[Rfam]
RNA sequence: AACAAAGUAGCAAUACCCCAUGUCUUGCUUUAGCAAGACAUGGGGUAUUGCUACUUUG
Numbered sequence: 001a002a003c004a005a006a007g008u009a010g011c012a013a014u015a016c017c018c019c020a021u022g023u024c025u026u027g028c029u030u031u032a033g034c035a036a037g038a039c040a041u042g043g044g045g046u047a048u049u050g051c052u053a054c055u056u057u058g
Stems, first nucleotide, its partner, number of pairs: 004057012019042002022039006
Rfam assigns this 58-nucleotide sequence from Musa textilis to the family "Plastid-psbA-4 3UTR RNA". It is one of the family's seed sequences. On this family, see Richter et al., Plant Commun 2023: "Retrograde signaling in plants: A critical review focusing on the GUN pathway and beyond". The family is grouped with related families in Rfam's "Plastid-psbA 3UTR RNA clan". Plastid psbA-4 is a non-coding RNA (ncRNA) present in plastids. It was identified in inverted repeat sequences in the 3 prime untranslate region (3UTR) of photosystem II quinone-binding protein (psbA).